[Rfam]
RNA sequence: UAAAUUCUUCGGGGCAGGGUGUAAUUCCCUACCGGCGGUAUAGUCCGCGAGCUGCGCAGGCAGUUGAACUGGUGAGAUUCCGGUACCGACAGUAUAGUCUGGAUGAGAGAAGAUGAUU
Numbered sequence: 001u002a003a004a005u006u007c008u009u010c011g012g013g014g015c016a017g018g019g020u021g022u023a024a025u026u027c028c029c030u031a032c033c034g035g036c037g038g039u040a041u042a043g044u045c046c047g048c049g050a051g052c053u054g055c056g057c058a059g060g061c062a063g064u065u066g067a068a069c070u071g072g073u074g075a076g077a078u079u080c081c082g083g084u085a086c087c088g089a090c091a092g093u094a095u096a097g098u099c100u101g102g103a104u105g106a107g108a109g110a111a112g113a114u115g116a117u118u
Base pairs, nucleotide, nucleotide: 006113007112008111009110010109017029018028019027031098032097033088034087035048036047037046038045043086044085051064052063053062068084069083070082071081072080090101091100092099

FMN riboswitch aptamer (RFN element): a 118-nucleotide sequence from Dorea sp. AF36-15AT. The family's consensus secondary structure is taken from published work. The source organism's lineage runs through Bacteria, Bacillati, Clostridia, Lachnospiraceae and Dorea.